[Rfam]
This 167-nucleotide RNA sequence from Clostridium argentinense belongs to the Rfam family "M-box riboswitch aptamer (ykoK leader)". It scores 147 bits against the family's covariance model. From the family's description: M-box riboswitch, also know as ykoK leader is described as a metaloregulatory RNA that sense divalent metals and function as a genetic control element of genes related to divalent metal transport in bacteria. On this family, see Barrick et al., Proc Natl Acad Sci U S A 2004: "New RNA motifs suggest an expanded scope for riboswitches in bacterial genetic control".

RNA sequence: AAUAAUUAACGUUAGGUGAGGCUCCUAUAUAGAUAUAUGCUACUGCCCCGAAACAUCGAGAGAUGCCAAUGGGUUAACAGGUACUACCGAAUCAAGGUUUUACUUAAUGUAGCUGGCAUAAUAUCCAAAGCUAUAUAGUGCUAAAGCUCAAACAUAGUUUUAUAGCU
Number, nucleotide and partner (000 for none) at each position: 001a000002a000003u000004a000005a163006u162007u000008a160009a159010c000011g153012u152013u095014a000015g148016g147017u146018g000019a000020g142021g141022c140023u000024c000025c138026u137027a136028u135029a134030u133031a132032g131033a000034u000035a000036u000037a000038u000039g113040c112041u111042a110043c109044u000045g074046c073047c072048c071049c000050g000051a000052a000053a000054c065055a064056u063057c062058g000059a000060g000061a000062g057063a056064u055065g054066c000067c000068a000069a000070u000071g048072g047073g046074u045075u000076a000077a000078c000079a000080g104081g103082u102083a101084c000085u000086a098087c097088c096089g000090a000091a000092u000093c000094a000095a013096g088097g087098u086099u000100u000101u083102a082103c081104u080105u000106a000107a000108u000109g043110u042111a041112g040113c039114u000115g126116g125117c000118a000119u000120a000121a000122u000123a000124u000125c116126c115127a000128a000129a000130g000131c032132u031133a030134u029135a028136u027137a026138g025139u000140g022141c021142u020143a000144a000145a000146g017147c016148u015149c000150a000151a000152a012153c011154a000155u000156a000157g000158u000159u009160u008161u000162a006163u005164a000165g000166c000167u000